[Rfam]
RNA sequence: GAGUGAUAUGAUGGUAUACCAUCUUUCGGGACUGACCUAUGCAAUGGAGAGUUCCUUCUGAUUUACUGAUCACUG
Numbered sequence: 001g002a003g004u005g006a007u008a009u010g011a012u013g014g015u016a017u018a019c020c021a022u023c024u025u026u027c028g029g030g031a032c033u034g035a036c037c038u039a040u041g042c043a044a045u046g047g048a049g050a051g052u053u054c055c056u057u058c059u060g061a062u063u064u065a066c067u068g069a070u071c072a073c074u075g
Stems, first nucleotide, its partner, number of pairs: 002074005

Shown here is a 75-nucleotide RNA from Cyprinodon variegatus, a member of the family "Small nucleolar RNA SNORD2". A reference for the family is Zhou et al. (2004), "Identification of a novel box C/D snoRNA from mouse nucleolar cDNA library", Gene. The source organism's lineage runs through Eukaryota, Eumetazoa, Bilateria, Eurypterygia and Cyprinodon. It is annotated as a C/D-box small nucleolar RNA.